Notes
Shown here is a 351-nucleotide RNA sequence from Fusarium redolens, a member of the family "Nuclear RNase P". A search with the family's covariance model found it, with a score of 37 bits.

RNA sequence: UUUGCCCCUCCGCAAAAUGUCAUAAGCUUUUCUGCGAGCAGAAAAAGCCAAAAGCUCGCAUGUGAGAAAUUCGGAGCAUCUUUCCAAUCGUUGCCAGUCUUUCGAGAAUGGUGGCAUACAGCAGUCACUCGCUUUACGAAGUGAGAGGACGUGUCUACCCGUGAGGGCCCAGCGCCAAUCGGCGCUCGCAAUACAGGCAUCAGAAAUGACAGGGUCUGGCGAAUUGGUUCGCUUUUCGUAUCAGAUUCCUAUGGGAAGCCGUUGCGGAGAUUGUGGGAGACUACGGUUGAACACUGGAGUGCGAUGCGCGACGUGGCUGCGGCCAUAAUUCAAUUCCGAUCAUUCUCUAGA
Dot-bracket structure: .[............(.(((.........((((((....))))))..............))).)........(((((.....((((........................................................................(((....)))...((((((....)))))).((((....(((.............(((.................................))).......))).))))))))......................................]....(((((....))))).......))))).............
Its family is annotated with ribonuclease P complex, ribonuclease P activity and tRNA processing in the Gene Ontology.